[Rfam]
RNA: Glycine riboswitch aptamer
RNA sequence: GGAGCAGCUUCUGGAGAGUUCGCAUGAUGCGGCGCCGAAGGAUUCACUAUCUCAGGCAAAAGGACAGAAGAGUAACU
Number, nucleotide and partner (000 for none) at each position: 001g000002g000003a000004g000005c000006a000007g000008c070009u069010u068011c067012u066013g065014g000015a000016g000017a000018g000019u000020u032021c031022g030023c029024a000025u000026g000027a000028u000029g023030c022031g021032g020033c000034g057035c056036c055037g053038a052039a000040g000041g051042a050043u049044u000045c000046a000047c000048u000049a043050u042051c041052u038053c037054a000055g036056g035057c034058a000059a000060a000061a000062g000063g000064a000065c013066a012067g011068a010069a009070g008071a000072g000073u000074a000075a000076c000077u000